Source information:
This 61-nucleotide sequence from Myceligenerans xiligouense belongs to the Rfam family "Actino-pnp RNA". Pairs were carried over by alignment from the consensus structure, which is taken from published work. Lineage of the source: Bacteria > Actinomycetota > Actinomycetes > Promicromonosporaceae > Myceligenerans.
RNA sequence: UCCGGUCCUCGGUAGUGGCUUCCCGAACAACGGGUUCGGUGGGCCUCGAUCGAUGACCGUU
Numbered sequence: 001u002c003c004g005g006u007c008c009u010c011g012g013u014a015g016u017g018g019c020u021u022c023c024c025g026a027a028c029a030a031c032g033g034g035u036u037c038g039g040u041g042g043g044c045c046u047c048g049a050u051c052g053a054u055g056a057c058c059g060u061u
Base pairs, nucleotide, nucleotide: 003059004058005057006056007055009053010052011051012050013049017045018044019043020042021041023039024038025037026036027035028034